[Rfam]
RNA sequence: ACGGCUCUUGCUUCAACAGUGUUUGGACAGAACAG
Numbered sequence: 001a002c003g004g005c006u007c008u009u010g011c012u013u014c015a016a017c018a019g020u021g022u023u024u025g026g027a028c029a030g031a032a033c034a035g
Stems, first nucleotide, its partner, number of pairs: 003033001006031003010028001012027005017021001
Record summary: The record is a 35-nucleotide sequence from Ovis aries, which matches "Iron response element I" in Rfam. Rfam classes the family as a cis-regulatory element.